[Rfam]
RNA sequence: AGAGUGUUAUGAUGUUGGAGAAUUUCUCCGAGUCUAGCUCAGCGCCGCUUCCCAGAUUUCUGGGAAGC
Numbered sequence: 001a002g003a004g005u006g007u008u009a010u011g012a013u014g015u016u017g018g019a020g021a022a023u024u025u026c027u028c029c030g031a032g033u034c035u036a037g038c039u040c041a042g043c044g045c046c047g048c049u050u051c052c053c054a055g056a057u058u059u060c061u062g063g064g065a066a067g068c
Stems, first nucleotide, its partner, number of pairs: 002040004011034003017029005047068009
Record summary:
A member of the RNA family "L17 ribosomal protein downstream element" from Enterococcus hermanniensis, 68 nucleotides long. The source organism's lineage runs through Bacteria, Bacillati, Lactobacillales, Enterococcaceae and Enterococcus.